[Rfam]
RNA sequence: AUCGUCCACUGGGGGCGCCUAUUGUUGGCUGAGAUAAGGACAUUGUCCUUGGUCCCUUUGAACCUGAUCUAGAUCAUUCUAGCGUAGGGAAGUGGAGACGGUCGCGA
Numbered sequence: 001a002u003c004g005u006c007c008a009c010u011g012g013g014g015g016c017g018c019c020u021a022u023u024g025u026u027g028g029c030u031g032a033g034a035u036a037a038g039g040a041c042a043u044u045g046u047c048c049u050u051g052g053u054c055c056c057u058u059u060g061a062a063c064c065u066g067a068u069c070u071a072g073a074u075c076a077u078u079c080u081a082g083c084g085u086a087g088g089g090a091a092g093u094g095g096a097g098a099c100g101g102u103c104g105c106g107a
Base pairs, nucleotide, nucleotide: 006095007094008093009092010091011057012056013055014054016051017029018028019027021025036050037049038048039047040046063088064087065086066085069082070081071080072079
RNA: TPP riboswitch aptamer (THI element)
Organism: Aureibacillus halotolerans